[Rfam]
RNA sequence: CCAGCUGCUGAUUGUCCAAACGCAAUUCUUGUGAAAGUUGGAAUAAAAAGCGAGAAUUGUGCCUGGACAUCUGUUGCUGU
Numbered sequence: 001c002c003a004g005c006u007g008c009u010g011a012u013u014g015u016c017c018a019a020a021c022g023c024a025a026u027u028c029u030u031g032u033g034a035a036a037g038u039u040g041g042a043a044u045a046a047a048a049a050g051c052g053a054g055a056a057u058u059g060u061g062c063c064u065g066g067a068c069a070u071c072u073g074u075u076g077c078u079g080u
Stems, first nucleotide, its partner, number of pairs: 002079004007074001010071003014068005021061011
RNA: mir-219 microRNA precursor family
Organism: Denticeps clupeoides